[Rfam]
The family of this 114-nucleotide sequence from Flavobacterium sp. is "Flavo-1 RNA". It is annotated as a small RNA.
RNA sequence: UCCUUUCCGGAUGCGUUAGCGAUGGAAGCGGCAUCCUUUUGCGGCUACUGUACUGUCCUUUUCUGCGCAAUCUGCAUUCUGCCGCAAAAGAUACAGCGUACAGCGCGGCCCGAA
Numbered sequence: 001u002c003c004u005u006u007c008c009g010g011a012u013g014c015g016u017u018a019g020c021g022a023u024g025g026a027a028g029c030g031g032c033a034u035c036c037u038u039u040u041g042c043g044g045c046u047a048c049u050g051u052a053c054u055g056u057c058c059u060u061u062u063c064u065g066c067g068c069a070a071u072c073u074g075c076a077u078u079c080u081g082c083c084g085c086a087a088a089a090g091a092u093a094c095a096g097c098g099u100a101c102a103g104c105g106c107g108g109c110c111c112g113a114a
Stems, first nucleotide, its partner, number of pairs: 019106003023102002028097002033092003039087007

About this RNA
The match comes from Rfam's covariance-model search (50 bits). The organism belongs to Flavobacterium, within Bacteria. Pairs were carried over by alignment from the consensus structure, which is taken from published work.